[Rfam]
RNA sequence: ACCACACCUAGCCCGACGGGGCGAAAAGCAGAUUCCUUUCACUGUCUGGUGUGGCUUUUAUUGAAAGG
Numbered sequence: 001a002c003c004a005c006a007c008c009u010a011g012c013c014c015g016a017c018g019g020g021g022c023g024a025a026a027a028g029c030a031g032a033u034u035c036c037u038u039u040c041a042c043u044g045u046c047u048g049g050u051g052u053g054g055c056u057u058u059u060a061u062u063g064a065a066a067g068g
Base pairs, nucleotide, nucleotide: 002054003053004052005051006050007049008048011022012021013020014019028045029044030043031042035068036067037066038065039064040063